[Rfam]
The record is a 179-nucleotide RNA from Thalassobacillus cyri, which matches "FMN riboswitch aptamer (RFN element)" in Rfam.
It scores 107 bits against the family's covariance model.
RNA sequence: UAAUUCCUUCGGGGUCGAGUGAAAUUCUCAACCGGCGGUAAUGAGCUUCAAACUCUCAGCCCGCGACGGGGAAUACCUUCAAAGGCAACUUUGAAAAAGGAUGCGUGGCAUCUGGUGUUCCCCCUGAUUUGGUGAAAUUCCAAAGCCGACAGUGACAGUCUGGAUGGGAGAAGGAAAGA
Numbered sequence: 001u002a003a004u005u006c007c008u009u010c011g012g013g014g015u016c017g018a019g020u021g022a023a024a025u026u027c028u029c030a031a032c033c034g035g036c037g038g039u040a041a042u043g044a045g046c047u048u049c050a051a052a053c054u055c056u057c058a059g060c061c062c063g064c065g066a067c068g069g070g071g072a073a074u075a076c077c078u079u080c081a082a083a084g085g086c087a088a089c090u091u092u093g094a095a096a097a098a099g100g101a102u103g104c105g106u107g108g109c110a111u112c113u114g115g116u117g118u119u120c121c122c123c124c125u126g127a128u129u130u131g132g133u134g135a136a137a138u139u140c141c142a143a144a145g146c147c148g149a150c151a152g153u154g155a156c157a158g159u160c161u162g163g164a165u166g167g168g169a170g171a172a173g174g175a176a177a178g179a
Base pairs, nucleotide, nucleotide: 004176005175006174007173008172009171010170017029018028019027031159032158033148034147035064036063037062038061059146060145068123069122070121071120072119073118074117075116076115077114128144129143130142131141132140150162151161152160